[Rfam]
RNA sequence: AUAAAUUCAUUGAAGUGGAAGAGUAGCUAUAUUGCCUAGUUUCAGAGAGUUGAGGAUGGUGGAAUCUCAAUACGAUGUCAUGUAGUGAAUGGACCAUUUAGAAGUAAGCCGAAAGUUUAAGUGAAAUCUUAAAUUAGUAGUACUUAACGGAGGCCACCCGUUAUAGUGGAUAGGACAUGUUAGUGUCUGAUUGAGAGAUAUGCUUUUGCAUAAUUUAGGUGGUACCGCGAAUAAUACCUUCGCCCUAAUU
Numbered sequence: 001a002u003a004a005a006u007u008c009a010u011u012g013a014a015g016u017g018g019a020a021g022a023g024u025a026g027c028u029a030u031a032u033u034g035c036c037u038a039g040u041u042u043c044a045g046a047g048a049g050u051u052g053a054g055g056a057u058g059g060u061g062g063a064a065u066c067u068c069a070a071u072a073c074g075a076u077g078u079c080a081u082g083u084a085g086u087g088a089a090u091g092g093a094c095c096a097u098u099u100a101g102a103a104g105u106a107a108g109c110c111g112a113a114a115g116u117u118u119a120a121g122u123g124a125a126a127u128c129u130u131a132a133a134u135u136a137g138u139a140g141u142a143c144u145u146a147a148c149g150g151a152g153g154c155c156a157c158c159c160g161u162u163a164u165a166g167u168g169g170a171u172a173g174g175a176c177a178u179g180u181u182a183g184u185g186u187c188u189g190a191u192u193g194a195g196a197g198a199u200a201u202g203c204u205u206u207u208g209c210a211u212a213a214u215u216u217a218g219g220u221g222g223u224a225c226c227g228c229g230a231a232u233a234a235u236a237c238c239u240u241c242g243c244c245c246u247a248a249u250u
Stems, first nucleotide, its partner, number of pairs: 007102002015097004026086006039073002049071006105146004110140001148160003198211001201210003216247004227243005
RNA: T-box leader